The family of this 100-nucleotide RNA sequence from Shewanella sediminis is "Alpha operon ribosome binding site". Pairs were carried over by alignment from the consensus structure, which is taken from published work. Rfam's curators write: The bacterial alpha operon ribosome binding site is surrounded by this complex pseudoknotted structure. Translation of the mRNA produces 4 ribosomal protein products, one of which (S4) acts as a translational repressor by binding to the nested pseudoknot region. On this family, see Schlax et al., J Biol Chem 2001: "Translational repression of the Escherichia coli alpha operon mRNA: importance of an mRNA conformational switch and a ternary entrapment complex". Gene Ontology term of the family: ribosome binding. The source organism's lineage runs through Bacteria, Pseudomonadati, Alteromonadales, Shewanella and Shewanella sediminis.
[Rfam]
RNA sequence: AACUGUUGUCUGUCGAGUAUCCUACCGGGCUUUUCACAGAUAACCAUUAACUAUUUAGGAGUGCAUAGUGGCCCGUAUCGCUGGCAUUAACAUUCCUGAU
Numbered sequence: 001a002a003c004u005g006u007u008g009u010c011u012g013u014c015g016a017g018u019a020u021c022c023u024a025c026c027g028g029g030c031u032u033u034u035c036a037c038a039g040a041u042a043a044c045c046a047u048u049a050a051c052u053a054u055u056u057a058g059g060a061g062u063g064c065a066u067a068g069u070g071g072c073c074c075g076u077a078u079c080g081c082u083g084g085c086a087u088u089a090a091c092a093u094u095c096c097u098g099a100u
Base pairs, nucleotide, nucleotide: 005044006043007042008041009040010039011038012037013036021084022083026075027074028073029072034099035098